[Rfam]
About this RNA: The record is a 172-nucleotide sequence from Centaurea solstitialis, which matches "small nucleolar RNA snoR134" in Rfam. For this family Rfam cites "Mining small RNA sequencing data: a new approach to identify small nucleolar RNAs in Arabidopsis" (Chen and Wu, Nucleic Acids Res, 2009).

RNA sequence: CUGCACGUAGCACCCCGGGCUUCUCUGAAAUAAUAAAUUGGAUGAAGAAGAAAGCCCCAAUGCUUGUGCUAUAUCAAUAUAUAUAUAUAUAUAUAUUGCCAUUAAGUGUUGCAGUUGAGCCUUUUGUACCUUUUUCCAUGGCCCUUUCUGUGUCAAAUUGAUGGCUACAUUU
Numbered sequence: 001c002u003g004c005a006c007g008u009a010g011c012a013c014c015c016c017g018g019g020c021u022u023c024u025c026u027g028a029a030a031u032a033a034u035a036a037a038u039u040g041g042a043u044g045a046a047g048a049a050g051a052a053a054g055c056c057c058c059a060a061u062g063c064u065u066g067u068g069c070u071a072u073a074u075c076a077a078u079a080u081a082u083a084u085a086u087a088u089a090u091a092u093a094u095a096u097u098g099c100c101a102u103u104a105a106g107u108g109u110u111g112c113a114g115u116u117g118a119g120c121c122u123u124u125u126g127u128a129c130c131u132u133u134u135u136c137c138a139u140g141g142c143c144c145u146u147u148c149u150g151u152g153u154c155a156a157a158u159u160g161a162u163g164g165c166u167a168c169a170u171u172u
Base pairs, nucleotide, nucleotide: 003069004068005067006066007065010063011062017057018056019055020054021053022051023050024048025047026046098165099164100163101162102161103160104159107155108154110152111151112150113149114148119142120141121140
Gene Ontology terms of the family: nucleolus and RNA processing. NCBI's taxonomy places the organism under Eukaryota, Streptophyta, Mesangiospermae, eudicotyledons, Centaurea.